[Rfam]
RNA sequence: GUUGGUGUUGCGCGGCACGUAGUUGAUGAAUGCGUAUCCGCGCGCCUGAUCGAUGGUGUGGAACAACGGGUUCCAGUCGAAAAAGGCAAUCAUGGACCCCGGCAGCGAAUUGGCGACAAACAUCUUGCCCGACGCGAUCAUGUUUGCACGGCG
Numbered sequence: 001g002u003u004g005g006u007g008u009u010g011c012g013c014g015g016c017a018c019g020u021a022g023u024u025g026a027u028g029a030a031u032g033c034g035u036a037u038c039c040g041c042g043c044g045c046c047u048g049a050u051c052g053a054u055g056g057u058g059u060g061g062a063a064c065a066a067c068g069g070g071u072u073c074c075a076g077u078c079g080a081a082a083a084a085g086g087c088a089a090u091c092a093u094g095g096a097c098c099c100c101g102g103c104a105g106c107g108a109a110u111u112g113g114c115g116a117c118a119a120a121c122a123u124c125u126u127g128c129c130c131g132a133c134g135c136g137a138u139c140a141u142g143u144u145u146g147c148a149c150g151g152c153g
Base pairs, nucleotide, nucleotide: 003034004033006032007031008030009029013025014024015023038056039055040054041052042051064153067150068149071081072080073079086147087146088145089144091142092141093140094139098134100131101130102129103127104126105125107123110119111118112117